RNA: Selenocysteine insertion sequence 3
Nucleotides: 059
Stems, first nucleotide, its partner, number of pairs: 007049007016041001018035002021033005
Number, partner (000 for none) and nucleotide at each position: 001000g002000u003000c004000u005000g006000a007049c008048a009047c010046g011045g012044c013043c014000c015000u016041a017000c018035g019034g020000u021033g022032u023031c024030c025029a026000g027000u028000u029025u030024g031023g032022g033021c034019c035018c036000a037000a038000c039000a040000u041016u042000u043013g044012g045011c046010c047009g048008u049007g050000g051000a052000g053000c054000g055000a056000u057000g058000a059000c